Overview
RNA anti-toxin A: an 85-nucleotide RNA from Atopostipes suicloacalis. Lineage of the source: Bacteria > Bacillati > Bacillota > Bacilli > Atopostipes suicloacalis. It is annotated as an antitoxin RNA. The family's consensus secondary structure was predicted with RNAalifold. A reference for the family is Fozo et al. (2010), "Abundance of type I toxin-antitoxin systems in bacteria: searches for new candidates and discovery of novel families", Nucleic Acids Res. Its family is annotated with mRNA binding and negative regulation of translation in the Gene Ontology.
RNA sequence: UAAUAGAUAUAAGAAAAAGGGCUCUGCGCGAACAGAACCCUCGACAAGCCGUUCAAGACGGUGGCUUAUUAGUAGUUAAAAAUAA
Numbered sequence: 001u002a003a004u005a006g007a008u009a010u011a012a013g014a015a016a017a018a019g020g021g022c023u024c025u026g027c028g029c030g031a032a033c034a035g036a037a038c039c040c041u042c043g044a045c046a047a048g049c050c051g052u053u054c055a056a057g058a059c060g061g062u063g064g065c066u067u068a069u070u071a072g073u074a075g076u077u078a079a080a081a082a083u084a085a
Stems, first nucleotide, its partner, number of pairs: 023036004048062006